[Rfam]
RNA sequence: AAACCGGUAACGCUGAAUUCUCUUCGGAGAAGCGGGGAAACCAAUUUUUGGGGUGAAUCCCGGCGCUCGAAACGUUCGGCAAGGCUGUGAGGCACACCUGCGGGCGGUGCCGCCGAAUGGGCAGCAUUAACAGAGUUGCCGGGUAGGGUUACCUUGCGACCCGAACCCGUCAGCUAACCUCGUAAGCGUAGGAAGGAAGGCCA
Dot-bracket structure: ..........((((...(((........)))((((((....((.....))(((.....(((((((.......................................................................)))))))..((((.........))))...))).........)))))).))))...............